Rfam assigns this 116-nucleotide RNA from Aneurinibacillus migulanus to the family "pan motif".
The match comes from Rfam's covariance-model search (43 bits).
Pairs were carried over by alignment from the consensus structure, which is taken from published work.
Rfam classes the family as a cis-regulatory element.
RNA sequence: AGGACUGUAUCCAUACGGAACGGUACCAGGACACCCGAACAUUUAUUUUGUUGCUGUAGCUGAACGGUACAAUAAUCAGUAAUCUGCUCUGAGCCGAUGAGGACCGAGACAGAGGG
Number, nucleotide and partner (000 for none) at each position: 001a000002g027003g026004a024005c023006u022007g021008u020009a000010u019011c018012c000013a000014u000015a000016c000017g000018g011019a010020a008021c007022g006023g005024u004025a000026c003027c002028a000029g000030g000031a000032c000033a000034c000035c000036c000037g000038a000039a000040c000041a000042u000043u000044u000045a000046u000047u000048u000049u000050g000051u000052u000053g000054c000055u000056g000057u000058a000059g000060c000061u000062g000063a000064a000065c000066g000067g000068u000069a000070c000071a000072a000073u000074a000075a000076u000077c000078a000079g000080u000081a000082a000083u000084c112085u111086g110087c108088u107089c106090u000091g104092a000093g000094c102095c101096g000097a000098u000099g000100a000101g095102g094103a000104c091105c000106g089107a088108g087109a000110c086111a085112g084113a000114g000115g000116g000